[Rfam]
RNA sequence: AACAGAGUAGAUGUCUGUGCGUUAGGUAUAUGAAAUUGCCUUGAGUGUUAGGAGGACGGGAAGUUGCCUCCUAAACGAAAAACUCUUGUUUACGGUACAGAUAUUGCAUUCCGCUGUU
Numbered sequence: 001a002a003c004a005g006a007g008u009a010g011a012u013g014u015c016u017g018u019g020c021g022u023u024a025g026g027u028a029u030a031u032g033a034a035a036u037u038g039c040c041u042u043g044a045g046u047g048u049u050a051g052g053a054g055g056a057c058g059g060g061a062a063g064u065u066g067c068c069u070c071c072u073a074a075a076c077g078a079a080a081a082a083c084u085c086u087u088g089u090u091u092a093c094g095g096u097a098c099a100g101a102u103a104u105u106g107c108a109u110u111c112c113g114c115u116g117u118u
Stems, first nucleotide, its partner, number of pairs: 001118005010105010020094003045076002048074008059111003063107001080091004
THF (Tetrahydrofolate) riboswitch aptamer: a 118-nucleotide RNA sequence from Clostridium uliginosum. The family has 101 seed sequences and 747 matches in Rfam 15.1. Rfam describes the family as follows. Tetrahydrofolate (THF) riboswitch was first reported for Ames et al. as an RNA motif in 5' untranslated (5'-UTR)regions of folate transport and biosynthesis genes in Firmicutes genomes. The base pairs follow the family's consensus structure, which is taken from published work. The organism belongs to Clostridium, within Bacteria.